[Rfam]
RNA sequence: CACACGUGGGGUCGCGGCUGCGGAGAGGUUCCGCCGUCGCUCCGGUGUUCGGAUUUCCGAACGACACCCUGCGGAGGCUCAACCGGAAAAGGUACAUAC
Numbered sequence: 001c002a003c004a005c006g007u008g009g010g011g012u013c014g015c016g017g018c019u020g021c022g023g024a025g026a027g028g029u030u031c032c033g034c035c036g037u038c039g040c041u042c043c044g045g046u047g048u049u050c051g052g053a054u055u056u057c058c059g060a061a062c063g064a065c066a067c068c069c070u071g072c073g074g075a076g077g078c079u080c081a082a083c084c085g086g087a088a089a090a091g092g093u094a095c096a097u098a099c
Stems, first nucleotide, its partner, number of pairs: 001076001003074001005073006014040002022035002025032001047062006
A member of the RNA family "rpsB sRNA" from Zavarzinia aquatilis, 99 nucleotides long. A search with the family's covariance model found it, with a score of 43 bits. Rfam classes the family as a small RNA. On this family, see Meyer et al., BMC Genomics 2009: "Identification of candidate structured RNAs in the marine organism 'Candidatus Pelagibacter ubique'".